Shown here is a 168-nucleotide sequence from Streptacidiphilus jiangxiensis, a member of the family "c-di-AMP riboswitch aptamer (ydaO/yuaA leader)". Pairs were carried over by alignment from the consensus structure. It scores 59 bits against the family's covariance model.
RNA sequence: GAGGCGGAAUCGUCUACUUGACGACCGGACAGGAGCGGGGGACCCAGGUAGUUCGCCGGACGUGCUGCACCAGCGCGGACGGCUCGGGGUGAAGACGUGCGAACGUCCGGGCCAGCCUCUACGGCCCGAACCCGACAGCUCACCUCGCAGGCGUCGGAGGGGACUUCA
Numbered sequence: 001g002a003g004g005c006g007g008a009a010u011c012g013u014c015u016a017c018u019u020g021a022c023g024a025c026c027g028g029a030c031a032g033g034a035g036c037g038g039g040g041g042a043c044c045c046a047g048g049u050a051g052u053u054c055g056c057c058g059g060a061c062g063u064g065c066u067g068c069a070c071c072a073g074c075g076c077g078g079a080c081g082g083c084u085c086g087g088g089g090u091g092a093a094g095a096c097g098u099g100c101g102a103a104c105g106u107c108c109g110g111g112c113c114a115g116c117c118u119c120u121a122c123g124g125c126c127c128g129a130a131c132c133c134g135a136c137a138g139c140u141c142a143c144c145u146c147g148c149a150g151g152c153g154u155c156g157g158a159g160g161g162g163a164c165u166u167c168a
Base pairs, nucleotide, nucleotide: 004152005151010034011033035148036147037146038145039144040143045086087133088132089131095106096105097104098103109127110126111125112124